[Rfam]
RNA sequence: CUGCAUACCAGUAGACCUUACCUGGCUCUUCCCAUAGCCAGGUGAGGGGGACGGUCCAUGCUAUAACAACCUGGGGUUGCUGUAGGCUGCAGUCACCCUCAGUGGGGCUGACUGAACUGCAAUACUCCAACACAA
Numbered sequence: 001c002u003g004c005a006u007a008c009c010a011g012u013a014g015a016c017c018u019u020a021c022c023u024g025g026c027u028c029u030u031c032c033c034a035u036a037g038c039c040a041g042g043u044g045a046g047g048g049g050g051a052c053g054g055u056c057c058a059u060g061c062u063a064u065a066a067c068a069a070c071c072u073g074g075g076g077u078u079g080c081u082g083u084a085g086g087c088u089g090c091a092g093u094c095a096c097c098c099u100c101a102g103u104g105g106g107g108c109u110g111a112c113u114g115a116a117c118u119g120c121a122a123u124a125c126u127c128c129a130a131c132a133c134a135a
Stems, first nucleotide, its partner, number of pairs: 003061004016047009073128004078124001081121003093111003097107001

Small nucleolar RNA SNORA58: a 135-nucleotide RNA from Zapornia atra. It is annotated as an H/ACA-box small nucleolar RNA. NCBI's taxonomy places the organism under Eukaryota, Tetrapoda, Theropoda, Neoaves, Zapornia. ACA52 is a member of the H/ACA class of snoRNA that guide the sites of modification of uridines to pseudouridines.